[Rfam]
RNA sequence: CCUUCGGAGUGCUAUACAAACGCUAGUAGCUUAUCCUUCGGGAUAGCGAGAGCGAGCACGAUGAACAAGGAA
Numbered sequence: 001c002c003u004u005c006g007g008a009g010u011g012c013u014a015u016a017c018a019a020a021c022g023c024u025a026g027u028a029g030c031u032u033a034u035c036c037u038u039c040g041g042g043a044u045a046g047c048g049a050g051a052g053c054g055a056g057c058a059c060g061a062u063g064a065a066c067a068a069g070g071a072a
Stems, first nucleotide, its partner, number of pairs: 001070004009059005021054003029047003034043002